[Rfam]
Shown here is a 135-nucleotide sequence from Sus scrofa, a member of the family "Small nucleolar RNA SNORA63". The organism belongs to Sus, within Eukaryota. The base pairs follow the family's consensus structure, which was predicted with PFOLD. Rfam links the family to the GO terms RNA processing and nucleolus. Rfam describes the family as follows. E3 belongs to the H/ACA class of snoRNAs and is involved in the processing of eukaryotic pre-rRNA and has regions of complementarity to 18S rRNA. E3 is encoded in introns in the gene for protein synthesis initiation factor 4AII. The family's RNA type in Rfam is H/ACA-box small nucleolar RNA. The match comes from Rfam's covariance-model search (93 bits).

RNA sequence: UGGCAGGUUAGGUUAACUGUUACGAUAUAGCUGUGAAGUGCUAUAUUGUCAUUUCCCCUGCCAAAAGCAAUUGUUUCCUACAAUCUCUGUCUAACUCCAUUCUGUAGUAAGACAGGGACGCUUGGUCUCAAACAU
Numbered sequence: 001u002g003g004c005a006g007g008u009u010a011g012g013u014u015a016a017c018u019g020u021u022a023c024g025a026u027a028u029a030g031c032u033g034u035g036a037a038g039u040g041c042u043a044u045a046u047u048g049u050c051a052u053u054u055c056c057c058c059u060g061c062c063a064a065a066a067g068c069a070a071u072u073g074u075u076u077c078c079u080a081c082a083a084u085c086u087c088u089g090u091c092u093a094a095c096u097c098c099a100u101u102c103u104g105u106a107g108u109a110a111g112a113c114a115g116g117g118a119c120g121c122u123u124g125g126u127c128u129c130a131a132a133c134a135u
Stems, first nucleotide, its partner, number of pairs: 003061005022049010086116004091111002093108001